[Rfam]
RNA sequence: UCUCCAAGGCCGUACGAGGCCGAGGGGAGCCGGGGACCCACGUCCUUUGGGGUGAAUCCGCGCCAGCGGUAGGGAGCUACUCCAAGCCCGAACCCGUCAGCUAACCCGGUAGACGUGAUUGGAGAGGAGAC
Numbered sequence: 001u002c003u004c005c006a007a008g009g010c011c012g013u014a015c016g017a018g019g020c021c022g023a024g025g026g027g028a029g030c031c032g033g034g035g036a037c038c039c040a041c042g043u044c045c046u047u048u049g050g051g052g053u054g055a056a057u058c059c060g061c062g063c064c065a066g067c068g069g070u071a072g073g074g075a076g077c078u079a080c081u082c083c084a085a086g087c088c089c090g091a092a093c094c095c096g097u098c099a100g101c102u103a104a105c106c107c108g109g110u111a112g113a114c115g116u117g118a119u120u121g122g123a124g125a126g127g128a129g130a131c
Stems, first nucleotide, its partner, number of pairs: 003028003029110006039049002050095003058069004072089003
Dot-bracket structure: ..(((....................)))((((((....((.......))(((.....((((....))))..(((............)))...))).........)))))).....................
The record is a 131-nucleotide RNA sequence from Sphaerisporangium krabiense, which matches "c-di-AMP riboswitch aptamer (ydaO/yuaA leader)" in Rfam. The source organism's lineage runs through Bacteria, Bacillati, Streptosporangiales, Streptosporangiaceae and Sphaerisporangium.